[Rfam]
RNA sequence: CGGGGGUUGGAUUCAUGAUGCUGUGGCCCCCGUCAGCGUUGAACUGGUGAUCACGGGGAUCUUCACACACCAGUAAGUAAAGCUGCGUCCGAGCUGAAAGUAGGCCGCCGGGGGUUUUCUCGCCACUGCCCCGGUGCUCCGAAUUUGAUAAGCCGGGCGCACUGCACGCUUUGAAGGGGUGAGCUGUUGUUGGACAGCUUAGAAAGUGCAGACGCCGA
Numbered sequence: 001c002g003g004g005g006g007u008u009g010g011a012u013u014c015a016u017g018a019u020g021c022u023g024u025g026g027c028c029c030c031c032g033u034c035a036g037c038g039u040u041g042a043a044c045u046g047g048u049g050a051u052c053a054c055g056g057g058g059a060u061c062u063u064c065a066c067a068c069a070c071c072a073g074u075a076a077g078u079a080a081a082g083c084u085g086c087g088u089c090c091g092a093g094c095u096g097a098a099a100g101u102a103g104g105c106c107g108c109c110g111g112g113g114g115u116u117u118u119c120u121c122g123c124c125a126c127u128g129c130c131c132c133g134g135u136g137c138u139c140c141g142a143a144u145u146u147g148a149u150a151a152g153c154c155g156g157g158c159g160c161a162c163u164g165c166a167c168g169c170u171u172u173g174a175a176g177g178g179g180u181g182a183g184c185u186g187u188u189g190u191u192g193g194a195c196a197g198c199u200u201a202g203a204a205a206g207u208g209c210a211g212a213c214g215c216c217g218a
Stems, first nucleotide, its partner, number of pairs: 001032007043074006062175004084161008093153002162211006180201007

About this RNA: This 218-nucleotide RNA belongs to the Rfam family "PAGEV RNA".